Rfam assigns this 589-nucleotide part of an RNA from Oenothera phytoplasma 86-7 to the family "Bacterial small subunit ribosomal RNA".
RNA sequence: UGACGGGACUCCGCACAAGCGGUGGAUCAUGUUGUUUAAUUCGAAGGUACCCGAAAAACCUCACCAGGUCUUGACAUGCUUCUGCAAAGCUGUAGAAACACAGUGGAGGUUAUCAGUUGCACAGGUGGUGCAUGGUUGUCGUCAGCUCGUGUCGUGAGAUGUUGGGUUAAGUCCCGCAACGAGCGCAACCCUUAUUGUUAGUUACCAGCACGUAAUGGUGGGGACUUUAGCAAGACUGCCAGUGAUAAAUUGGAGGAAGGUGGGGACGACGUCAAAUCAUCAUGCCCCUUAUGACCUGGGCUACAAACGUGAUACAAUGGCUGUUACAAAGGGUAGCUGAAGCGCAAGUUUUUGGCGAAUCUCAAAAAAACAGUCUCAGUUCGGAUUGAAGUCUGCAACUCGACUUCAUGAAGUUGGAAUCGCUAGUAAUCGCGAAUCCAGCAUGUCGCGGUGAAUACGUUCUCGGGGUUUGUACACACCGCCCGUCAAACCACGAAAGUUGGCAAUACCCAAAGCCGGUGGCCUAACUUCGCAAGAAGAGGGAACCGUCUAAGGUAGGGUCGAUGAUUGGGGUUAAGUCGUAACAAGG
Number, nucleotide and partner (000 for none) at each position: 001u476002g475003a473004c472005g471006g000007g470008a469009c468010u467011c466012c465013g464014c000015a460016c459017a000018a000019g423020c422021g421022g420023u419024g315025g000026a313027u312028c311029a310030u309031g308032u307033u306034g304035u303036u000037u000038a000039a000040u055041u054042c053043g052044a000045a000046g000047g000048u000049a000050c000051c000052c043053g042054a041055a040056a000057a000058a000059c000060c000061u000062c000063a000064c299065c298066a297067g296068g295069u294070c293071u000072u000073g000074a000075c000076a000077u121078g120079c000080u000081u000082c116083u115084g114085c000086a000087a000088a000089g104090c103091u102092g101093u100094a000095g000096a000097a000098a000099c000100a093101c092102a091103g090104u089105g000106g000107a000108g000109g000110u000111u000112a000113u000114c084115a083116g082117u000118u000119g000120c078121a077122c000123a000124g288125g287126u000127g286128g285129u284130g283131c000132a000133u282134g281135g277136u276137u275138g273139u000140c271141g270142u000143c000144a000145g184146c183147u182148c181149g180150u179151g160152u159153c158154g000155u000156g000157a000158g153159a152160u151161g000162u000163u176164g175165g174166g173167u000168u000169a000170a000171g000172u000173c166174c165175c164176g163177c000178a000179a150180c149181g148182a147183g146184c145185g000186c000187a000188a000189c000190c265191c264192u263193u262194a000195u233196u232197g231198u230199u229200a228201g227202u000203u000204a000205c222206c221207a000208g000209c220210a219211c218212g000213u000214a000215a000216u000217g000218g211219u210220g209221g206222g205223g000224a000225c000226u000227u201228u200229a199230g198231c197232a196233a195234g000235a000236c256237u255238g000239c253240c252241a251242g250243u249244g000245a000246u000247a000248a000249a243250u242251u241252g240253g239254a000255g237256g236257a000258a000259g000260g000261u000262g193263g192264g191265g190266a000267c000268g000269a000270c141271g140272u000273c138274a000275a137276a136277u135278c000279a000280u000281c134282a133283u130284g129285c128286c127287c125288c124289u000290u000291a000292u000293g070294a069295c068296c067297u066298g065299g064300g000301c000302u000303a035304c034305a000306a033307a032308c031309g030310u029311g028312a027313u026314a000315c024316a000317a000318u000319g375320g374321c373322u372323g371324u370325u369326a000327c000328a000329a000330a000331g363332g362333g361334u000335a000336g356337c355338u000339g000340a000341a350342g349343c348344g000345c000346a000347a000348g343349u342350u341351u000352u000353u000354g000355g337356c336357g000358a000359a000360u000361c333362u332363c331364a000365a000366a000367a000368a000369a325370a324371c323372a322373g321374u320375c319376u000377c000378a000379g000380u000381u000382c413383g000384g000385a000386u000387u408388g407389a406390a405391g404392u403393c402394u000395g000396c000397a000398a000399c000400u000401c000402g393403a392404c391405u390406u389407c388408a387409u000410g000411a000412a000413g382414u000415u000416g000417g000418a000419a023420u022421c021422g020423c019424u000425a000426g000427u000428a000429a452430u451431c450432g449433c448434g447435a446436a000437u000438c000439c000440a000441g000442c000443a000444u000445g000446u435447c434448g433449c432450g431451g430452u429453g000454a000455a000456u000457a000458c000459g016460u015461u000462c000463u000464c013465g012466g011467g010468g009469u008470u007471u005472g004473u003474a000475c002476a001477c000478a000479c588480c000481g585482c000483c000484c581485g580486u000487c000488a000489a575490a574491c573492c572493a000494c570495g569496a568497a000498a000499g565500u564501u563502g562503g561504c560505a000506a000507u557508a556509c555510c554511c000512a000513a000514a000515g550516c000517c548518g547519g546520u545521g000522g000523c543524c542525u541526a000527a000528c539529u538530u537531c536532g000533c000534a000535a000536g531537a530538a529539g528540a000541g525542g524543g523544a000545a520546c519547c518548g517549u000550c515551u000552a000553a000554g510555g509556u508557a507558g000559g000560g504561u503562c502563g501564a500565u499566g000567a000568u496569u495570g494571g000572g492573g491574u490575u489576a000577a000578g000579u000580c485581g484582u000583a000584a000585c481586a000587a000588g479589g000
Source information: Taxonomically the source falls in Candidatus Phytoplasma (Bacteria, Bacillati, Mollicutes, Acholeplasmataceae). The family has 99 seed sequences and 42,628 matches in Rfam 15.1. The sequence is in the family's curated seed alignment.